[Rfam]
RNA sequence: UUACAAUUAAAGGAUAUUUCUUGGGAGAAUCGAGUCAGAAAUGUCUUUUAAUUGUUUGGC
Numbered sequence: 001u002u003a004c005a006a007u008u009a010a011a012g013g014a015u016a017u018u019u020c021u022u023g024g025g026a027g028a029a030u031c032g033a034g035u036c037a038g039a040a041a042u043g044u045c046u047u048u049u050a051a052u053u054g055u056u057u058g059g060c
Base pairs, nucleotide, nucleotide: 003055004054005053006052007051008050009049010048012046013045014044015043016042017041018040019039020038021037025031
Shown here is a 60-nucleotide RNA from Takifugu flavidus, a member of the family "mir-7552 microRNA precursor family".
Lineage of the source: Eukaryota > Metazoa > Deuterostomia > Tetraodontoidei > Takifugu.